Shown here is a 99-nucleotide sequence from Cellulosimicrobium funkei, a member of the family "SAM (S-adenosyl methionine) riboswitch aptamer". A search with the family's covariance model found it, with a score of 78 bits. From the family's description: SAM-IV is a mRNA element that regulates gene expression via direct sensing of S-adenosylmethionine (SAM or AdoMet). SAM-IV riboswitches share conserved nucleotide positions with the previously described SAM-I riboswitches sequence analysis and molecular recognition experiments suggest that SAM-I and SAM-IV riboswitches share similar ligand binding sites, but have different scaffolds. Pairs were carried over by alignment from the consensus structure, which is taken from published work. Taxonomically the source falls in Cellulosimicrobium (Bacteria, Bacillati, Actinomycetes, Promicromonosporaceae).
RNA sequence: GGUCAUGAGCUCCGACGCCAAGCCCCGGCUCGUCGGACGGCAACCCUCCCGCGCGGUGGGGUGCCCCGGGUGAGGACCAGGUCCCGCGUCGCGCGGACC
Numbered sequence: 001g002g003u004c005a006u007g008a009g010c011u012c013c014g015a016c017g018c019c020a021a022g023c024c025c026c027g028g029c030u031c032g033u034c035g036g037a038c039g040g041c042a043a044c045c046c047u048c049c050c051g052c053g054c055g056g057u058g059g060g061g062u063g064c065c066c067c068g069g070g071u072g073a074g075g076a077c078c079a080g081g082u083c084c085c086g087c088g089u090c091g092c093g094c095g096g097a098c099c
Stems, first nucleotide, its partner, number of pairs: 001078004009038001011037006021030002039065003044061003048056002081098004